This 306-nucleotide RNA sequence belongs to the Rfam family "Arthropod 7SK RNA". Clan: 7SK clan. The family's consensus secondary structure is taken from published work. A reference for the family is Gruber et al. (2008), "Arthropod 7SK RNA", Mol Biol Evol.
[Rfam]
RNA sequence: GGAAGUGUGUGCUAGUGAUAGCAGAGCUGAACAUCGAUCGCUAACGUAGAGUAUAUGGCAGAUCUGCUCAGUGGUUGUUGUCACUCGGUCGCUUCAAGUAUAACUUGCGUUCGGCUCCCGAUUGCGCGUACAGACUCCGUGUUGUCUCGGCACCACGGAACUGCACGCCUGCACGGUUGAGUCUUCACGUCGGUCCUCGAACUACCGCGAUUUCCAAAUUGGGGGGCAAAUCGAAUAGGUCAGACGAGGUAAUUUGUCACUUCCAUAUACAGGCACUGCGGAAAAGCAGUAUGCCAUGUUUUUUUU
Numbered sequence: 001g002g003a004a005g006u007g008u009g010u011g012c013u014a015g016u017g018a019u020a021g022c023a024g025a026g027c028u029g030a031a032c033a034u035c036g037a038u039c040g041c042u043a044a045c046g047u048a049g050a051g052u053a054u055a056u057g058g059c060a061g062a063u064c065u066g067c068u069c070a071g072u073g074g075u076u077g078u079u080g081u082c083a084c085u086c087g088g089u090c091g092c093u094u095c096a097a098g099u100a101u102a103a104c105u106u107g108c109g110u111u112c113g114g115c116u117c118c119c120g121a122u123u124g125c126g127c128g129u130a131c132a133g134a135c136u137c138c139g140u141g142u143u144g145u146c147u148c149g150g151c152a153c154c155a156c157g158g159a160a161c162u163g164c165a166c167g168c169c170u171g172c173a174c175g176g177u178u179g180a181g182u183c184u185u186c187a188c189g190u191c192g193g194u195c196c197u198c199g200a201a202c203u204a205c206c207g208c209g210a211u212u213u214c215c216a217a218a219u220u221g222g223g224g225g226g227c228a229a230a231u232c233g234a235a236u237a238g239g240u241c242a243g244a245c246g247a248g249g250u251a252a253u254u255u256g257u258c259a260c261u262u263c264c265a266u267a268u269a270c271a272g273g274c275a276c277u278g279c280g281g282a283a284a285a286g287c288a289g290u291a292u293g294c295c296a297u298g299u300u301u302u303u304u305u306u
Base pairs, nucleotide, nucleotide: 001264002263003262004261005260006259007258015084016083017082018081019080027071028070029069032066033065036064037063038062039061040059041058042057043056272295273294274293275290276289277288278287279286